The record is a 214-nucleotide RNA from Streptomyces sp. MP131-18, which matches "Actinobacteria sRNA Ms_IGR-5" in Rfam. The pairing is the family consensus, mapped onto this sequence. NCBI's taxonomy places the organism under Bacteria, Actinomycetota, Actinomycetes, Streptomycetaceae, Streptomyces. For this family Rfam cites "Identification of small RNAs in Mycobacterium smegmatis using heterologous Hfq" (Li et al., RNA, 2013).
RNA sequence: ACACGAGAAGGGAGGUGGUUCGGCAGAUGUAUGACAACCGGACGCGUGAGGUGACUGCGGCCUAACGGCCGUCGUACCACGACACGUGGCGCGCCGGCUCCGCCGGCCAAUCCCAAGCAGUCACCCGAUCCGCGGGCCGCCGGUAUCGUCCGGCCGGCUCCCCGGCGGGCGCAUCGAGCGCCUACCGGGGGCUACGGCCCGCGGGUCGUUUUUU
Numbered sequence: 001a002c003a004c005g006a007g008a009a010g011g012g013a014g015g016u017g018g019u020u021c022g023g024c025a026g027a028u029g030u031a032u033g034a035c036a037a038c039c040g041g042a043c044g045c046g047u048g049a050g051g052u053g054a055c056u057g058c059g060g061c062c063u064a065a066c067g068g069c070c071g072u073c074g075u076a077c078c079a080c081g082a083c084a085c086g087u088g089g090c091g092c093g094c095c096g097g098c099u100c101c102g103c104c105g106g107c108c109a110a111u112c113c114c115a116a117g118c119a120g121u122c123a124c125c126c127g128a129u130c131c132g133c134g135g136g137c138c139g140c141c142g143g144u145a146u147c148g149u150c151c152g153g154c155c156g157g158c159u160c161c162c163c164g165g166c167g168g169g170c171g172c173a174u175c176g177a178g179c180g181c182c183u184a185c186c187g188g189g190g191g192c193u194a195c196g197g198c199c200c201g202c203g204g205g206u207c208g209u210u211u212u213u214u
Stems, first nucleotide, its partner, number of pairs: 015058005060108001062106002066102001068098004073093003126208013140188006